[Rfam]
RNA: Nuclear RNase P
RNA sequence: AGUGGUAAUUCCUACGAUUAAGAAACCUGUUUGCAAAAGGGCCCUCUACACUGGGGGUCAUAGUAUAUUUAUCAGGUGGGAAAUUCGGUGGAACACAGUGGAGCCUCGUACUCCGGGCCGCCGUCUUUGACAGUGGCCCCUGCUCCUGAGAGAAGAUACUGGGGAACCAGUCUUAACCGACCGUUGUUAUCAGAAAUUAAACGGAGCCCAGUUUACAACCGGGCUCCGAUGGGAACGGCAACGGUUGUUCCGUUUGACUUGACACUUGCCGUCGCGCGGGUGCCAAGGUCUGUUGAGUGCAAUCGUAGGACGCCAUUCAUGGCGAACCCGAUACCGAUUACUGCCACU
Numbered sequence: 001a002g003u004g005g006u007a008a009u010u011c012c013u014a015c016g017a018u019u020a021a022g023a024a025a026c027c028u029g030u031u032u033g034c035a036a037a038a039g040g041g042c043c044c045u046c047u048a049c050a051c052u053g054g055g056g057g058u059c060a061u062a063g064u065a066u067a068u069u070u071a072u073c074a075g076g077u078g079g080g081a082a083a084u085u086c087g088g089u090g091g092a093a094c095a096c097a098g099u100g101g102a103g104c105c106u107c108g109u110a111c112u113c114c115g116g117g118c119c120g121c122c123g124u125c126u127u128u129g130a131c132a133g134u135g136g137c138c139c140c141u142g143c144u145c146c147u148g149a150g151a152g153a154a155g156a157u158a159c160u161g162g163g164g165a166a167c168c169a170g171u172c173u174u175a176a177c178c179g180a181c182c183g184u185u186g187u188u189a190u191c192a193g194a195a196a197u198u199a200a201a202c203g204g205a206g207c208c209c210a211g212u213u214u215a216c217a218a219c220c221g222g223g224c225u226c227c228g229a230u231g232g233g234a235a236c237g238g239c240a241a242c243g244g245u246u247g248u249u250c251c252g253u254u255u256g257a258c259u260u261g262a263c264a265c266u267u268g269c270c271g272u273c274g275c276g277c278g279g280g281u282g283c284c285a286a287g288g289u290c291u292g293u294u295g296a297g298u299g300c301a302a303u304c305g306u307a308g309g310a311c312g313c314c315a316u317u318c319a320u321g322g323c324g325a326a327c328c329c330g331a332u333a334c335c336g337a338u339u340a341c342u343g344c345c346a347c348u
Stems, first nucleotide, its partner, number of pairs: 001348002005344003010310007025077005040059006086336005091250004141154001143152003158171005182243007202228003311324005